Nematode snoRNA ceN88: a 152-nucleotide RNA sequence from Acrobeloides nanus.
Rfam 15.1 lists 99 matches to the family in 51 species.
Gene Ontology terms of the family: RNA processing and nucleolus.
The base pairs follow the family's consensus structure, which was predicted with RNAalifold.
The source organism's lineage runs through Eukaryota, Opisthokonta, Metazoa, Protostomia and Acrobeloides.
The literature on the family includes a 2007 paper in BMC Mol Biol by Jia et al., "Systematic identification of non-coding RNA 2,2,7-trimethylguanosine cap structures in Caenorhabditis elegans".
The family's RNA type in Rfam is H/ACA-box small nucleolar RNA.
[Rfam]
RNA sequence: UUCCUCAUUUCUUGGCAUUCUAAGGCUUUAUAUGUCUAGAGAUGUAUGCAAAUUUGAGGUAGAUAGACUUCCACCAUGUGGAAAUUUCGGGCCUCCUUCGAUGUUAGUCUCUAUUAUUUGGAUUAAUAUUAUCCUCUGGGCUCGAGACAUUA
Numbered sequence: 001u002u003c004c005u006c007a008u009u010u011c012u013u014g015g016c017a018u019u020c021u022a023a024g025g026c027u028u029u030a031u032a033u034g035u036c037u038a039g040a041g042a043u044g045u046a047u048g049c050a051a052a053u054u055u056g057a058g059g060u061a062g063a064u065a066g067a068c069u070u071c072c073a074c075c076a077u078g079u080g081g082a083a084a085u086u087u088c089g090g091g092c093c094u095c096c097u098u099c100g101a102u103g104u105u106a107g108u109c110u111c112u113a114u115u116a117u118u119u120g121g122a123u124u125a126a127u128a129u130u131a132u133c134c135u136c137u138g139g140g141c142u143c144g145a146g147a148c149a150u151u152a
Stems, first nucleotide, its partner, number of pairs: 003059005009052002015045004021038001086146009100130002104126006